[Rfam]
RNA sequence: CGGGGACAUGCAGGCUCCCCAUUAGACGGCCGCUUCCGUCCAAGCUCUGC
Number, nucleotide and partner (000 for none) at each position: 001c000002g020003g019004g018005g017006a016007c000008a000009u000010g050011c049012a048013g047014g046015c000016u006017c005018c004019c003020c002021a000022u000023u000024a000025g040026a039027c038028g037029g036030c000031c000032g000033c000034u000035u000036c029037c028038g027039u026040c025041c000042a000043a000044g000045c000046u014047c013048u012049g011050c010
The record is a 50-nucleotide RNA sequence, which matches "chrB-b RNA" in Rfam. The base pairs follow the family's consensus structure, which is taken from published work. It is annotated as a cis-regulatory element.